The family of this 126-nucleotide sequence from Salmonella enterica is "Phenylalanine leader peptide". The literature on the family includes a 1978 paper in Proc Natl Acad Sci U S A by Zurawski et al., "Nucleotide sequence of the leader region of the phenylalanine operon of Escherichia coli". The match comes from Rfam's covariance-model search (125 bits). Rfam 15.1 lists 379 matches to the family in 290 species.
RNA sequence: UAUGCAACUAGCUCAGUUUUUCUUCGCAUUCUUUUUUACCUUCCCCUGAUCGGGAGGCGUUUCGUCAUGUGAUAAAGAAUGCGAAGACGAACAAGAAGGCCUCCCACACCGGGGGGCUUUUUUAUU
Numbered sequence: 001u002a003u004g005c006a007a008c009u010a011g012c013u014c015a016g017u018u019u020u021u022c023u024u025c026g027c028a029u030u031c032u033u034u035u036u037u038a039c040c041u042u043c044c045c046c047u048g049a050u051c052g053g054g055a056g057g058c059g060u061u062u063c064g065u066c067a068u069g070u071g072a073u074a075a076a077g078a079a080u081g082c083g084a085a086g087a088c089g090a091a092c093a094a095g096a097a098g099g100c101c102u103c104c105c106a107c108a109c110c111g112g113g114g115g116g117c118u119u120u121u122u123u124a125u126u
Stems, first nucleotide, its partner, number of pairs: 016092004021087014036072004042055004056066004096120010